[Rfam]
Annotation: Small nucleolar RNA SNORA69: a 130-nucleotide RNA sequence from Cicer arietinum. U69 is a member of the H/ACA class of small nucleolar RNAs (snoRNAs) which act as guides in the the modification of uridines to pseudouridines. The organism belongs to Cicer, within Eukaryota. The family has 16 seed sequences and 808 matches in Rfam 15.1. It is annotated as an H/ACA-box small nucleolar RNA.
RNA sequence: UGGGUGGGCAUAUUACAGCGCUUUUUUGUGAAGAAGCGCUGUAAAAUGCCCACCCAUAAUUUCAUAUAUGGGUGGGCAUAUUACAGCGCUUUUUUGUGAAGAAGCGCUGUAAAAUGCCCACCCAUAAUUU
Numbered sequence: 001u002g003g004g005u006g007g008g009c010a011u012a013u014u015a016c017a018g019c020g021c022u023u024u025u026u027u028g029u030g031a032a033g034a035a036g037c038g039c040u041g042u043a044a045a046a047u048g049c050c051c052a053c054c055c056a057u058a059a060u061u062u063c064a065u066a067u068a069u070g071g072g073u074g075g076g077c078a079u080a081u082u083a084c085a086g087c088g089c090u091u092u093u094u095u096g097u098g099a100a101g102a103a104g105c106g107c108u109g110u111a112a113a114a115u116g117c118c119c120a121c122c123c124a125u126a127a128u129u130u
Stems, first nucleotide, its partner, number of pairs: 003054006016041009067126011083110012